[Rfam]
RNA sequence: AAACCCUUAUGGGGCAAGACUUGCUUCGGUGGAGCUUUGGUGCUCACUGAGUCUGCCCCCUGAGUGUGUCCCU
Numbered sequence: 001a002a003a004c005c006c007u008u009a010u011g012g013g014g015c016a017a018g019a020c021u022u023g024c025u026u027c028g029g030u031g032g033a034g035c036u037u038u039g040g041u042g043c044u045c046a047c048u049g050a051g052u053c054u055g056c057c058c059c060c061u062g063a064g065u066g067u068g069u070c071c072c073u
Stems, first nucleotide, its partner, number of pairs: 001069001003067002006064004011059006018053003026050007034041002
About this RNA:
A member of the RNA family "mir-9229 microRNA precursor family" from Myotis myotis, 73 nucleotides long.